[Rfam]
RNA: c-di-GMP-I riboswitch aptamer
RNA sequence: AAGAUAGCAACGCAAAGCUAGCAAGCUAGCAACGCAAAGCUAUGAAGCUAGCAAAGCAUAUCUAGCAAGCUAGCAAGCUAGCAAA
Dot-bracket structure: ...........((...(((((....)))))...))..((((.((.(((......((.....)).....)))..))))))......